The family of this 68-nucleotide RNA from Planococcus rifietoensis is "Bacillaceae-1 RNA". A search with the family's covariance model found it, with a score of 38 bits.
RNA sequence: AGUCCAUGCCCUGGCAGCUGGAAGCGCGACGUCCUGUCGCACCAGCUGCAUGACCCACAUCCUGUGGG
Numbered sequence: 001a002g003u004c005c006a007u008g009c010c011c012u013g014g015c016a017g018c019u020g021g022a023a024g025c026g027c028g029a030c031g032u033c034c035u036g037u038c039g040c041a042c043c044a045g046c047u048g049c050a051u052g053a054c055c056c057a058c059a060u061c062c063u064g065u066g067g068g
Stems, first nucleotide, its partner, number of pairs: 014049006026040005054068005

The family has 95 seed sequences and 5,721 matches in Rfam 15.1.
Taxonomically the source falls in Planococcus (Bacteria, Bacillati, Bacillota, Caryophanaceae).